Small nucleolar RNA U54: a 95-nucleotide sequence from Asparagus officinalis.
The match comes from Rfam's covariance-model search (54 bits).

[Rfam]
RNA sequence: UGCUCGAUGAUUGUAGCCAAUGUUAUUUGGCAAUAUACGCUAUUCUGAGCACUUUAAGCAUAGGUUCUGAUGCUAAACAAGAAAAUAUGAGAGCU
Number, nucleotide and partner (000 for none) at each position: 001u000002g094003c093004u092005c091006g000007a000008u000009g000010a000011u000012u000013g000014u000015a000016g000017c000018c000019a000020a000021u000022g000023u000024u000025a000026u000027u000028u000029g000030g000031c000032a000033a000034u000035a000036u000037a000038c000039g000040c000041u000042a000043u000044u000045c000046u000047g000048a000049g000050c000051a000052c000053u000054u000055u000056a000057a000058g000059c000060a000061u000062a000063g000064g000065u000066u000067c000068u000069g000070a000071u000072g000073c000074u000075a000076a000077a000078c000079a000080a000081g000082a000083a000084a000085a000086u000087a000088u000089g000090a000091g005092a004093g003094c002095u000
NCBI's taxonomy places the organism under Eukaryota, Tracheophyta, Asparagaceae, Asparagoideae, Asparagus. Pairs were carried over by alignment from the consensus structure, which was predicted with PFOLD. Rfam classes the family as a C/D-box small nucleolar RNA. Rfam's curators write: U54 is a C/D box small nucleolar RNA, which acts as a methylation guide for 18S ribosomal RNA in plants.